[Rfam]
This 100-nucleotide RNA sequence from Acidaminococcus fermentans belongs to the Rfam family "SAM riboswitch aptamer (S box leader)". The family's consensus secondary structure is taken from published work. Rfam describes the family as follows. The SAM riboswitch is found upstream of a number of genes which code for proteins involved in methionine or cysteine biosynthesis in Gram-positive bacteria. The SAM riboswitch acts at the level of transcription termination control. The predicted structure consists of a complex stem-loop region followed by a single stem loop terminator region. An alternative and mutually exclusive form involves bases in the 3' segment of helix 1 with those in the 5' region of helix 5 to form a structure termed the anti-terminator form. This entry represents the conserved core of the complex structure involving helices 1-4.
RNA sequence: CCUUCAUCGAGAGCAGCAGAGGGAUUUGGCCCUAUGAAGCUGCGGCAACCCCCGGAUGGGAAGGUGCCAAUUCCAACAGGGAUUCCCUGGCAGAUGAAAA
Numbered sequence: 001c002c003u004u005c006a007u008c009g010a011g012a013g014c015a016g017c018a019g020a021g022g023g024a025u026u027u028g029g030c031c032c033u034a035u036g037a038a039g040c041u042g043c044g045g046c047a048a049c050c051c052c053c054g055g056a057u058g059g060g061a062a063g064g065u066g067c068c069a070a071u072u073c074c075a076a077c078a079g080g081g082a083u084u085c086c087c088u089g090g091c092a093g094a095u096g097a098a099a100a
Stems, first nucleotide, its partner, number of pairs: 003098006013043005021032003026076004044068004049064002051060003072092001077089005